Shown here is an 84-nucleotide RNA from Methanospirillum hungatei, a member of the family "tRNA".
Taxonomically the source falls in Methanospirillum hungatei (Archaea, Methanobacteriota, Methanomicrobiales, Methanospirillum).
It is annotated as a transfer RNA.
RNA sequence: GUUGAGGUAGCCAAGCCAGGUAUGGCGCAGGGUUGCUAACCCUGUGUCCCUUGGGACUCGGGGGUUCAAAUCCCUCCCUCAACG
Number, nucleotide and partner (000 for none) at each position: 001g083002u082003u081004g080005a079006g078007g077008u000009a000010g026011c025012c024013a023014a000015g000016c000017c000018a000019g000020g000021u000022a000023u013024g012025g011026c010027g000028c044029a043030g042031g041032g040033u000034u000035g000036c000037u000038a000039a000040c032041c031042c030043u029044g028045u000046g000047u000048c000049c000050c000051u000052u000053g000054g000055g000056a000057c000058u000059c000060g076061g075062g074063g073064g072065u000066u000067c000068a000069a000070a000071u000072c064073c063074c062075u061076c060077c007078c006079u005080c004081a003082a002083c001084g000